tRNA: an 81-nucleotide RNA from Paracoccus suum. By type it is a transfer RNA. The family's consensus secondary structure is taken from published work. The organism belongs to Paracoccus, within Bacteria. The match comes from Rfam's covariance-model search (52 bits).
[Rfam]
RNA sequence: GGGGGCGUGGCGAAAUGGUAGACGCGGUAGACUCAAACUCUGCUUCCGCAAGGAGUGCCGGUUCGAUCCCGGCCGCCCCUA
Numbered sequence: 001g002g003g004g005g006c007g008u009g010g011c012g013a014a015a016u017g018g019u020a021g022a023c024g025c026g027g028u029a030g031a032c033u034c035a036a037a038c039u040c041u042g043c044u045u046c047c048g049c050a051a052g053g054a055g056u057g058c059c060g061g062u063u064c065g066a067u068c069c070c071g072g073c074c075g076c077c078c079c080u081a
Base pairs, nucleotide, nucleotide: 001080002079003078004077005076006075007074010025011024012023027043028042029041030040031039057073058072059071060070061069